[Rfam]
Shown here is a 112-nucleotide sequence from Phrynocephalus forsythii, a member of the family "U5 spliceosomal RNA". By type it is a spliceosomal small nuclear RNA.
RNA sequence: AGAUCCUGGUUUCUCUUCAGAUCGUAUAAAUCUAUCGCCUUUUACUAAAGAUUUCCGUGGAGAGGAACAUUUGUGAGUUUGUAACCAAUUUUUUGUGAGCCUUGUGGCGCAG
Number, nucleotide and partner (000 for none) at each position: 001a000002g000003a078004u077005c000006c075007u000008g000009g068010u067011u066012u065013c064014u063015c062016u061017u060018c059019a058020g000021a000022u000023c000024g000025u000026a000027u000028a054029a053030a052031u051032c050033u049034a000035u047036c000037g000038c000039c000040u000041u000042u000043u000044a000045c000046u000047a035048a000049a033050g032051a031052u030053u029054u028055c000056c000057g000058u019059g018060g017061a016062g015063a014064g013065g012066a011067a010068c009069a000070u000071u000072u000073g000074u000075g006076a000077g004078u003079u000080u000081g000082u000083a000084a000085c000086c000087a000088a000089u000090u000091u000092u000093u000094u000095g000096u111097g110098a000099g108100c107101c106102u000103u000104g000105u000106g101107g100108c099109g000110c097111a096112g000

Description
The family's consensus secondary structure is taken from published work.